The family of this 76-nucleotide RNA sequence from Plutella xylostella is "mir-9/mir-79 microRNA precursor family".

[Rfam]
RNA sequence: GGUUAAUUAUCUUUGGUUAUCUAGCUGUAUGAGUAAUAUAGACAUCAUAAAGCUAGGUUACCGGAGUUAAGUGCCG
Number, nucleotide and partner (000 for none) at each position: 001g000002g075003u000004u073005a072006a000007u070008u069009a068010u000011c066012u065013u064014u063015g062016g061017u060018u000019a058020u057021c056022u055023a054024g053025c052026u051027g000028u049029a048030u047031g046032a045033g000034u000035a000036a000037u000038a000039u000040a000041g000042a000043c000044a000045u032046c031047a030048u029049a028050a000051a026052g025053c024054u023055a022056g021057g020058u019059u000060a017061c016062c015063g014064g013065a012066g011067u000068u009069a008070a007071g000072u005073g004074c000075c002076g000
Pairs were carried over by alignment from the consensus structure, which was predicted with RNAalifold.